[Rfam]
RNA sequence: CGACGGAGAGCGUGUACGGACUCUGCCCGAAGCGCGAGUCUUUCUGGUGUACUUCCCCGACAUCAGAGUGACCGCUUCGGGUAGGGCCCUAUACGUUCCCCGUGAUGAG
Numbered sequence: 001c002g003a004c005g006g007a008g009a010g011c012g013u014g015u016a017c018g019g020a021c022u023c024u025g026c027c028c029g030a031a032g033c034g035c036g037a038g039u040c041u042u043u044c045u046g047g048u049g050u051a052c053u054u055c056c057c058c059g060a061c062a063u064c065a066g067a068g069u070g071a072c073c074g075c076u077u078c079g080g081g082u083a084g085g086g087c088c089c090u091a092u093a094c095g096u097u098c099c100c101c102g103u104g105a106u107g108a109g
Base pairs, nucleotide, nucleotide: 010096011095012094013093014092015091016090018089019088021086022085023084024083025082026081027080028079029078030077031076032075033074034073038072039071040070042068043067044066045065046064047063048062049061050060
mraW RNA: a 109-nucleotide RNA from Corynebacterium pilosum.
The family's RNA type in Rfam is cis-regulatory element.
The match comes from Rfam's covariance-model search (66 bits).
NCBI's taxonomy places the organism under Bacteria, Bacillati, Actinomycetota, Corynebacteriaceae, Corynebacterium.